[Rfam]
Glycine riboswitch aptamer: a 108-nucleotide sequence from Pelomonas sp. HMWF004.
RNA sequence: UUCGACAUCCCAGGAGAGCGCGGCCCCUCCGCUUGAUCAUCGAGCGACGGGCCGCCACCGAAGGCGCAACCUCCCAUGCACGCUCAGGUCCCGAACUGGUUUGUCGUU
Numbered sequence: 001u002u003c004g005a006c007a008u009c010c011c012a013g014g015a016g017a018g019c020g021c022g023g024c025c026c027c028u029c030c031g032c033u034u035g036a037u038c039a040u041c042g043a044g045c046g047a048c049g050g051g052c053c054g055c056c057a058c059c060g061a062a063g064g065c066g067c068a069a070c071c072u073c074c075c076a077u078g079c080a081c082g083c084u085c086a087g088g089u090c091c092c093g094a095a096c097u098g099g100u101u102u103g104u105c106g107u108u
Base pairs, nucleotide, nucleotide: 006103007102010099011098012097013096020055021054022053023052024051025050026049057089058088059087060085061084064083065082066081070078